[Rfam]
RNA sequence: UCAUAACGCAUCUAGGGUUCCGGCCGCUGCCGCGGCGCUGGUCCGAGAGAUGCACUCCCGCCCCGCAAGGGGCGGAGCCACGGCGGGAUAAAAGCCCGGGAGAU
Number, nucleotide and partner (000 for none) at each position: 001u000002c000003a000004u000005a000006a000007c000008g053009c052010a051011u050012c049013u000014a000015g044016g043017g000018u000019u000020c041021c040022g038023g036024c035025c034026g033027c032028u000029g000030c000031c000032g027033c026034g025035g024036c023037g000038c022039u000040g021041g020042u000043c016044c015045g000046a000047g000048a000049g012050a011051u010052g009053c008054a000055c077056u076057c075058c000059c074060g073061c072062c071063c070064c000065g000066c000067a000068a000069g000070g063071g062072g061073c060074g059075g057076a056077g055078c000079c099080a000081c102082g000083g000084c000085g097086g096087g095088a000089u000090a000091a000092a000093a000094g000095c087096c086097c085098g000099g079100g000101a000102g081103a000104u000
Guanidine-I riboswitch aptamer: a 104-nucleotide RNA from Blastochloris viridis. For this family Rfam cites "Structural Basis for Ligand Binding to the Guanidine-I Riboswitch" (Reiss et al., Structure, 2017). The source organism's lineage runs through Bacteria, Alphaproteobacteria, Hyphomicrobiales, Blastochloridaceae and Blastochloris.